Shown here is a 66-nucleotide RNA sequence from Rhizobium johnstonii, a member of the family "S-element". The family has 29 seed sequences and 231 matches in Rfam 15.1. Its family is annotated with mRNA transcription and translation regulator activity in the Gene Ontology. The source organism's lineage runs through Bacteria, Pseudomonadati, Rhizobiaceae, Rhizobium and Rhizobium johnstonii.
RNA sequence: UGUCAAGAGUUUUUGGCGCCGUUUUGGUGAGCGGAUUUCUUUUGCCUCGUUGAGGUAGACGAUAUG
Numbered sequence: 001u002g003u004c005a006a007g008a009g010u011u012u013u014u015g016g017c018g019c020c021g022u023u024u025u026g027g028u029g030a031g032c033g034g035a036u037u038u039c040u041u042u043u044g045c046c047u048c049g050u051u052g053a054g055g056u057a058g059a060c061g062a063u064a065u066g
Base pairs, nucleotide, nucleotide: 009063010062011061013059014058018056019055020054022053023052027048029047031045032044033043034042035041